[Rfam]
RNA sequence: UGGGUGUGAAGAGAGCAGAGCGCCUGAAGAAUGGCUGCUCUGUGACUGACACAUCCCACAGCAACCUGGGUUUAUCUCCACACGCGGCAGGAUACUGGGACUUUCCUGCGACAUUACGCCCUCUACAU
Numbered sequence: 001u002g003g004g005u006g007u008g009a010a011g012a013g014a015g016c017a018g019a020g021c022g023c024c025u026g027a028a029g030a031a032u033g034g035c036u037g038c039u040c041u042g043u044g045a046c047u048g049a050c051a052c053a054u055c056c057c058a059c060a061g062c063a064a065c066c067u068g069g070g071u072u073u074a075u076c077u078c079c080a081c082a083c084g085c086g087g088c089a090g091g092a093u094a095c096u097g098g099g100a101c102u103u104u105c106c107u108g109c110g111a112c113a114u115u116a117c118g119c120c121c122u123c124u125a126c127a128u
Base pairs, nucleotide, nucleotide: 002056003055004054005053006052007051008050015043016042017041018040019039020038021037022035023034024033069121070120072118077113081110084103086101088099091096
A member of the RNA family "Small nucleolar RNA SNORA11" from Pipistrellus kuhlii, 128 nucleotides long.
From the family's description: U107 (SNORA11) is a member of the H/ACA class of snoRNAs that guide the sites of modification of uridines to pseudouridines. This snoRNA was identified by RT-PCR from blood cells and its expression confirmed by Northern blot analysis.
Rfam links the family to the GO terms nucleolus and RNA processing.
A reference for the family is Gu et al. (2005), "A novel experimental approach for systematic identification of box H/ACA snoRNAs from eukaryotes", Nucleic Acids Res.
Rfam classes the family as an H/ACA-box small nucleolar RNA.
NCBI's taxonomy places the organism under Eukaryota, Deuterostomia, Vertebrata, Gnathostomata, Pipistrellus.